Shown here is a 71-nucleotide sequence from Rhodovastum atsumiense, a member of the family "terC RNA".
RNA sequence: AACACGGUCCGGGCCCCUCUGGCAGGGACGUCGGCUUGCGCCGGCCAACCCUGCGAUGUCGGAUCACCGCG
Numbered sequence: 001a002a003c004a005c006g007g008u009c010c011g012g013g014c015c016c017c018u019c020u021g022g023c024a025g026g027g028a029c030g031u032c033g034g035c036u037u038g039c040g041c042c043g044g045c046c047a048a049c050c051c052u053g054c055g056a057u058g059u060c061g062g063a064u065c066a067c068c069g070c071g
Base pairs, nucleotide, nucleotide: 006065007064008063009062010061011060012059022054023053024052025051026050027049